RNA: c-di-GMP-I riboswitch aptamer
Organism: Bacillus sp. AFS040349
RNA sequence: AUAUAAUAAAGGCAAAUUCAUUGAAAGAUGGAGACGCAAAGUCACAGACCUAAGGAGUAAUCUAUGGUGGCUGGAUUGCUGAU
Number, nucleotide and partner (000 for none) at each position: 001a000002u000003a000004u000005a000006a000007u000008a000009a000010a000011g000012g037013c036014a000015a000016a000017u032018u031019c030020a029021u028022u027023g000024a000025a000026a000027g022028a021029u020030g019031g018032a017033g000034a000035c000036g013037c012038a000039a000040a077041g076042u075043c074044a000045c073046a072047g071048a068049c067050c066051u000052a000053a000054g000055g062056a061057g000058u000059a000060a000061u056062c055063u000064a000065u000066g050067g049068u048069g000070g000071c047072u046073g045074g043075a042076u041077u040078g000079c000080u000081g000082a000083u000